[Rfam]
Small nucleolar RNA SNORA9: a 129-nucleotide RNA from Terrapene triunguis. It is annotated as an H/ACA-box small nucleolar RNA. Gene Ontology terms of the family: nucleolus and RNA processing. Rfam's curators write: ACA9 is a member of the H/ACA class of snoRNA that guide the sites of modification of uridines to pseudouridines.

RNA sequence: GCCUUCCAGCAUGGCUGGGUCUGUGGUGACCCUGGUCAUUCCUGUAGUGCUUGCAAGAGCAGCCCUGAGAUGGUUUGAGGCCUUGCUCUGCUCCUUUUCAGGGUGAGGUUAUAGAAAUUUCAGACAGGC
Numbered sequence: 001g002c003c004u005u006c007c008a009g010c011a012u013g014g015c016u017g018g019g020u021c022u023g024u025g026g027u028g029a030c031c032c033u034g035g036u037c038a039u040u041c042c043u044g045u046a047g048u049g050c051u052u053g054c055a056a057g058a059g060c061a062g063c064c065c066u067g068a069g070a071u072g073g074u075u076u077g078a079g080g081c082c083u084u085g086c087u088c089u090g091c092u093c094c095u096u097u098u099c100a101g102g103g104u105g106a107g108g109u110u111a112u113a114g115a116a117a118u119u120u121c122a123g124a125c126a127g128g129c
Stems, first nucleotide, its partner, number of pairs: 001050002012038003017032005066122005081108006088101003